[Rfam]
RNA sequence: CAAUCUCAUACAUGAUUGAGGAGGAAGUCGUCCUACUAAGGUCCCUUGCAAUUUUCCUUAAUUCUUGUUAUUAUUAGGUAGAAUUAUUUUUGACCGGUGUAAAGUUCGACUUUUCGUUCUAAUGAUCACUUUGGGCAAGAGUAGUAAUACAAUGUGCUUUAGCACUAGGAGGCAACAAACAUGGAACAAGGUACAGUUAAAUGGUUUAACGCAGAAAAAGGCUUCGGAUUCAUCGAGCGCGAAGGUGGAGAAGACGUAUUCGUUCAUUUCUCUGCAAUCCAAUCUGAAGGCUUCAAAUCAUUAGACGAAGGUCAAAAAGUAACUUUCGACGUUGAGCAAGGCGCACGUGGACCACAAGCUGCUAACGUUCAAAAAGCUUAAUUUUUGAUAUAGCAUACCGAAACAGACUCCAAAAGAGUCUGUUUUUUUA
Numbered sequence: 001c002a003a004u005c006u007c008a009u010a011c012a013u014g015a016u017u018g019a020g021g022a023g024g025a026a027g028u029c030g031u032c033c034u035a036c037u038a039a040g041g042u043c044c045c046u047u048g049c050a051a052u053u054u055u056c057c058u059u060a061a062u063u064c065u066u067g068u069u070a071u072u073a074u075u076a077g078g079u080a081g082a083a084u085u086a087u088u089u090u091u092g093a094c095c096g097g098u099g100u101a102a103a104g105u106u107c108g109a110c111u112u113u114u115c116g117u118u119c120u121a122a123u124g125a126u127c128a129c130u131u132u133g134g135g136c137a138a139g140a141g142u143a144g145u146a147a148u149a150c151a152a153u154g155u156g157c158u159u160u161a162g163c164a165c166u167a168g169g170a171g172g173c174a175a176c177a178a179a180c181a182u183g184g185a186a187c188a189a190g191g192u193a194c195a196g197u198u199a200a201a202u203g204g205u206u207u208a209a210c211g212c213a214g215a216a217a218a219a220g221g222c223u224u225c226g227g228a229u230u231c232a233u234c235g236a237g238c239g240c241g242a243a244g245g246u247g248g249a250g251a252a253g254a255c256g257u258a259u260u261c262g263u264u265c266a267u268u269u270c271u272c273u274g275c276a277a278u279c280c281a282a283u284c285u286g287a288a289g290g291c292u293u294c295a296a297a298u299c300a301u302u303a304g305a306c307g308a309a310g311g312u313c314a315a316a317a318a319g320u321a322a323c324u325u326u327c328g329a330c331g332u333u334g335a336g337c338a339a340g341g342c343g344c345a346c347g348u349g350g351a352c353c354a355c356a357a358g359c360u361g362c363u364a365a366c367g368u369u370c371a372a373a374a375a376g377c378u379u380a381a382u383u384u385u386u387g388a389u390a391u392a393g394c395a396u397a398c399c400g401a402a403a404c405a406g407a408c409u410c411c412a413a414a415a416g417a418g419u420c421u422g423u424u425u426u427u428u429u430a
Stems, first nucleotide, its partner, number of pairs: 004021005027240002031236002040231002042227002044221004052215003056211001058209004064204002069154004077150001084144007092107002095104001116126001118125002157190003244333004253261002264322001266320004271316001273314002275311001278305002281302003286299002340353002344350001358370001376394003381389003400426011
Shown here is a 430-nucleotide sequence from Bacillus sp. B-jedd, a member of the family "cspA thermoregulator". Taxonomically the source falls in Bacillus (Bacteria, Bacillota, Bacilli, Bacillaceae). Rfam classes the family as an RNA thermoregulator. The family's consensus secondary structure is taken from published work. Its family is annotated with regulation of translation and response to temperature stimulus in the Gene Ontology.